Notes:
Rfam assigns this 207-nucleotide RNA sequence from Anaerobacterium chartisolvens to the family "Enterococcus sRNA 1300". For this family Rfam cites "Small RNAs in vancomycin-resistant Enterococcus faecium involved in daptomycin response and resistance" (Sinel et al., Sci Rep, 2017). Rfam classes the family as a small RNA. Rfam's curators write: Expressed in mid and late exponential phases of growth. Expression remained uniform under daptomycin exposure. The match comes from Rfam's covariance-model search (60 bits).

RNA sequence: UGACUCUGCAUCCAUGUUUAAAAUAAGUUAGCAAUAAAGAGUGGAUUUCAUCUUAUGAUGAUGAGCUUUUUUUGUUGUGCUUAUUUUGAGAUGCAGACAUGACUUGUAAUUGGGGAUAGUUUUUUACUGUGCCCUUUCGUUGUGAUUUCUUCUCGUAUAUAUGCAGAUUAGAAGCUCUUGUCGUAGCUUCUAAUCUGCAUUUUUAUU
Dot-bracket structure: .....((((((((.......((((((((..((((((((((((.....(((((.......)))))))..)))))))))))))))))).).))))))).((((((..(.((...(.((((((.....))))).)).)).)))))))................((((((.((.(((.((.(....).)).))).)).)))))).......